[Rfam]
RNA sequence: CGCUAUUCCGAGGGGUGCUUUUCUUCAGAGAAGCUGAGAUUGCCUAGAGCUAGACCCUUUGAACCUGAUCCGGGUAAUGCCGGCGAAGGGACGGGACCCGAGCCAUUA
Numbered sequence: 001c002g003c004u005a006u007u008c009c010g011a012g013g014g015g016u017g018c019u020u021u022u023c024u025u026c027a028g029a030g031a032a033g034c035u036g037a038g039a040u041u042g043c044c045u046a047g048a049g050c051u052a053g054a055c056c057c058u059u060u061g062a063a064c065c066u067g068a069u070c071c072g073g074g075u076a077a078u079g080c081c082g083g084c085g086a087a088g089g090g091a092c093g094g095g096a097c098c099c100g101a102g103c104c105a106u107u108a
Stems, first nucleotide, its partner, number of pairs: 006096005011058004016052001017034005042050002064089003070083004
Source information:
Shown here is a 108-nucleotide RNA sequence from Pseudovibrio axinellae, a member of the family "TPP riboswitch aptamer (THI element)". Rfam describes the family as follows. Vitamin B(1) in its active form thiamin pyrophosphate (TPP) is an essential coenzyme that is synthesised by coupling of pyrimidine and thiazole moieties in bacteria. The previously detected thiamin-regulatory element, thi box was extended, resulting in a new, highly conserved RNA secondary structure, the THI element, which is widely distributed in eubacteria and also occurs in some archaea. Analysis of operon structures identified a large number of new candidate thiamin-regulated genes, mostly transporters, in various prokaryotic organisms. The THI element is a riboswitch that directly binds to TPP to regulate gene expression through a variety of mechanisms in archaea, bacteria and eukaryotes. through a variety of mechanisms in archaea, bacteria and eukaryotes. Tandem TPP riboswitches have been reported where both TPP riboswitches respond independently to TPP. The structure of TPP riboswitch has been reported for Escherichia coli and Arabidopsis thaliana. The match comes from Rfam's covariance-model search (81 bits). Lineage of the source: Bacteria > Pseudomonadota > Alphaproteobacteria > Hyphomicrobiales > Pseudovibrio.